[Rfam]
RNA sequence: CGGCGGGACACGCCCCCCCACCGGGGCGCAGCCAUUCUGGAAGGGAUAGGCUC
Numbered sequence: 001c002g003g004c005g006g007g008a009c010a011c012g013c014c015c016c017c018c019c020a021c022c023g024g025g026g027c028g029c030a031g032c033c034a035u036u037c038u039g040g041a042a043g044g045g046a047u048a049g050g051c052u053c
Stems, first nucleotide, its partner, number of pairs: 011028006034047005